A member of the RNA family "small nucleolar RNA snoR143" from Arabis alpina, 173 nucleotides long.
RNA sequence: UUGCACUAUGUAUUUGUAAGGCUAUGUCUUUGUUCAGUGACAUAGUCUUUGUUGCAAAAAGUGCAUAAAGAGAGAGCUGUUAAAUCAGCAAGCGGCCAGACAACCGUCAGGAUAGAUCCACAGGUGAAACAGCAUUUUCCUCUGUUUUCAGCUACUAAAUCUAUCCUACAUUU
Numbered sequence: 001u002u003g004c005a006c007u008a009u010g011u012a013u014u015u016g017u018a019a020g021g022c023u024a025u026g027u028c029u030u031u032g033u034u035c036a037g038u039g040a041c042a043u044a045g046u047c048u049u050u051g052u053u054g055c056a057a058a059a060a061g062u063g064c065a066u067a068a069a070g071a072g073a074g075a076g077c078u079g080u081u082a083a084a085u086c087a088g089c090a091a092g093c094g095g096c097c098a099g100a101c102a103a104c105c106g107u108c109a110g111g112a113u114a115g116a117u118c119c120a121c122a123g124g125u126g127a128a129a130c131a132g133c134a135u136u137u138u139c140c141u142c143u144g145u146u147u148u149c150a151g152c153u154a155c156u157a158a159a160u161c162u163a164u165c166c167u168a169c170a171u172u173u
Stems, first nucleotide, its partner, number of pairs: 002065005009056003014051001018049011109167008126148007
The family's consensus secondary structure was predicted with RNAalifold. A reference for the family is Chen and Wu (2009), "Mining small RNA sequencing data: a new approach to identify small nucleolar RNAs in Arabidopsis", Nucleic Acids Res. Taxonomically the source falls in Arabis (Eukaryota, Spermatophyta, Brassicales, Brassicaceae).